[Rfam]
RNA sequence: GUUGGGAAAUGAUGAUAAAAACAGAUUGGCAAAGGCACCAGCGAUGCUGAGAUUAUUCAUUUGCACGUCAGUCUGAUCCCUAG
Numbered sequence: 001g002u003u004g005g006g007a008a009a010u011g012a013u014g015a016u017a018a019a020a021a022c023a024g025a026u027u028g029g030c031a032a033a034g035g036c037a038c039c040a041g042c043g044a045u046g047c048u049g050a051g052a053u054u055a056u057u058c059a060u061u062u063g064c065a066c067g068u069c070a071g072u073c074u075g076a077u078c079c080c081u082a083g
Base pairs, nucleotide, nucleotide: 002082004080005079006078007077